[Rfam]
RNA sequence: UCUACUCUCAAAAAACUUAGUUGUGUAAAUGAAAAACUUUAAAAACUAAAUGAAGGAGCAAUACCCAAGUUCUUGUUCUAUCAAGAGGGUGGGUAUUGCUCCUUC
Numbered sequence: 001u002c003u004a005c006u007c008u009c010a011a012a013a014a015a016c017u018u019a020g021u022u023g024u025g026u027a028a029a030u031g032a033a034a035a036a037c038u039u040u041a042a043a044a045a046c047u048a049a050a051u052g053a054a055g056g057a058g059c060a061a062u063a064c065c066c067a068a069g070u071u072c073u074u075g076u077u078c079u080a081u082c083a084a085g086a087g088g089g090u091g092g093g094u095a096u097u098g099c100u101c102c103u104u105c
Stems, first nucleotide, its partner, number of pairs: 052105013066091002070087005
Plastid-psbA-1 3UTR RNA: a 105-nucleotide RNA from Kingdonia uniflora. By type it is a cis-regulatory element. A search with the family's covariance model found it, with a score of 57 bits. The family's consensus secondary structure was predicted with LocARNA.